Overview: Rfam assigns this 59-nucleotide sequence from Dechloromonas aromatica to the family "Selenocysteine insertion sequence 3". Rfam classes the family as a cis-regulatory element. The organism belongs to Dechloromonas aromatica (nom. nud.), within Bacteria.
RNA sequence: GUUUGACACGGUCCGACGGUGGCCAGUCUGGCUCCGACAUUUGGCCGUGGCGCAAUGAC
Numbered sequence: 001g002u003u004u005g006a007c008a009c010g011g012u013c014c015g016a017c018g019g020u021g022g023c024c025a026g027u028c029u030g031g032c033u034c035c036g037a038c039a040u041u042u043g044g045c046c047g048u049g050g051c052g053c054a055a056u057g058a059c
Base pairs, nucleotide, nucleotide: 007049008048009047010046011045012044013043015042016041018035019034021033022032023031024030025029